[Rfam]
RNA sequence: CGCCAAGUCCGAGCUCCGGUAAUCCACCGGAGUCUGGUGCAAAGGGA
Numbered sequence: 001c002g003c004c005a006a007g008u009c010c011g012a013g014c015u016c017c018g019g020u021a022a023u024c025c026a027c028c029g030g031a032g033u034c035u036g037g038u039g040c041a042a043a044g045g046g047a
Stems, first nucleotide, its partner, number of pairs: 013034001014032006